[Rfam]
RNA sequence: AGCAAGAUGAUGAAGUACUAUGAUCUGAAUGUUUCUGUUGAAUACCCAAAAUAGUAUUGGUCUUCAAAGUUCUCUGAUUGGU
Numbered sequence: 001a002g003c004a005a006g007a008u009g010a011u012g013a014a015g016u017a018c019u020a021u022g023a024u025c026u027g028a029a030u031g032u033u034u035c036u037g038u039u040g041a042a043u044a045c046c047c048a049a050a051a052u053a054g055u056a057u058u059g060g061u062c063u064u065c066a067a068a069g070u071u072c073u074c075u076g077a078u079u080g081g082u
Base pairs, nucleotide, nucleotide: 001082003080004079005078
RNA: Small nucleolar RNA R160